[Rfam]
RNA sequence: UUGGGAAGCUGGACCUAGCGCGGGCAAAUGUACUGUCUUCUGUCUGCUCUUUCAGCCUCCCUAGAGUAAAGUGAAGGUCUCUGUCUGGUUUAGAACAGUCCACUGAUCCAGAUCGUUCCUCUUUCAACAUU
Numbered sequence: 001u002u003g004g005g006a007a008g009c010u011g012g013a014c015c016u017a018g019c020g021c022g023g024g025c026a027a028a029u030g031u032a033c034u035g036u037c038u039u040c041u042g043u044c045u046g047c048u049c050u051u052u053c054a055g056c057c058u059c060c061c062u063a064g065a066g067u068a069a070a071g072u073g074a075a076g077g078u079c080u081c082u083g084u085c086u087g088g089u090u091u092a093g094a095a096c097a098g099u100c101c102a103c104u105g106a107u108c109c110a111g112a113u114c115g116u117u118c119c120u121c122u123u124u125c126a127a128c129a130u131u
Stems, first nucleotide, its partner, number of pairs: 004061002008056005020047006030039001073124005081115001083113003087109002090106004
RNA: Small Cajal body specific RNA 3
Organism: Phrynocephalus forsythii